The family of this 373-nucleotide sequence from Collybiopsis confluens is "RNase MRP".
Rfam classes the family as a ribozyme.
RNase MRP is an enzymatically active ribonucleoprotein with two distinct roles in eukaryotes. In mitochondria it plays a direct role in the initiation of mitochondrial DNA replication.
RNA sequence: AGGCCGUUUGAAGAAUCGUUUUCGCAGCUUCCGUACAGAGACCAUUCGGUCUUUUUUUUCGGCUGUGGGGAAAGUCCCCGGAGAUGCAGAGGUUCCUCAUCCAGUUAAAUGGAAAGCAGCGUCCCCAAGCACGACGUAUUGGUUCGAGGAUGGCUUUGAAGGUUUUUUUCUGCUUUCAUCUCUUGUCCAAGGUUCUCUGCCUGGGGGAGAGGACUAGCUCCCUUCUGCUGCCGCUCUGCUGACCCCACUCUGCUCAAAGUCGCGAAGAUAUGAGCGCACUGGACGGAGUGACGGUCUACCCGUUGCUCAUAGAUACAGUUAUACGAUUGUCGACUCUGGUCUUCAACUCAAUGGGGCUCACUAUCUUUCGGCC
Numbered sequence: 001a002g003g004c005c006g007u008u009u010g011a012a013g014a015a016u017c018g019u020u021u022u023c024g025c026a027g028c029u030u031c032c033g034u035a036c037a038g039a040g041a042c043c044a045u046u047c048g049g050u051c052u053u054u055u056u057u058u059u060c061g062g063c064u065g066u067g068g069g070g071a072a073a074g075u076c077c078c079c080g081g082a083g084a085u086g087c088a089g090a091g092g093u094u095c096c097u098c099a100u101c102c103a104g105u106u107a108a109a110u111g112g113a114a115a116g117c118a119g120c121g122u123c124c125c126c127a128a129g130c131a132c133g134a135c136g137u138a139u140u141g142g143u144u145c146g147a148g149g150a151u152g153g154c155u156u157u158g159a160a161g162g163u164u165u166u167u168u169u170c171u172g173c174u175u176u177c178a179u180c181u182c183u184u185g186u187c188c189a190a191g192g193u194u195c196u197c198u199g200c201c202u203g204g205g206g207g208a209g210a211g212g213a214c215u216a217g218c219u220c221c222c223u224u225c226u227g228c229u230g231c232c233g234c235u236c237u238g239c240u241g242a243c244c245c246c247a248c249u250c251u252g253c254u255c256a257a258a259g260u261c262g263c264g265a266a267g268a269u270a271u272g273a274g275c276g277c278a279c280u281g282g283a284c285g286g287a288g289u290g291a292c293g294g295u296c297u298a299c300c301c302g303u304u305g306c307u308c309a310u311a312g313a314u315a316c317a318g319u320u321a322u323a324c325g326a327u328u329g330u331c332g333a334c335u336c337u338g339g340u341c342u343u344c345a346a347c348u349c350a351a352u353g354g355g356g357c358u359c360a361c362u363a364u365c366u367u368u369c370g371g372c373c
Stems, first nucleotide, its partner, number of pairs: 002373005010365002014328006022068007038053006073358002076356004120133003124129001241296003247289006258280002261276003332341003
Dot-bracket structure: .(((((...((..((((((..(((((((.........((((((....))))))........)))))))....[[.[[[[........................................(((.(....).)))...........................................................................................................(((...((((((.....((.(((..........)))..))...))))))....)))..........................))))))...(((....)))...........]]]]]].....))...)))))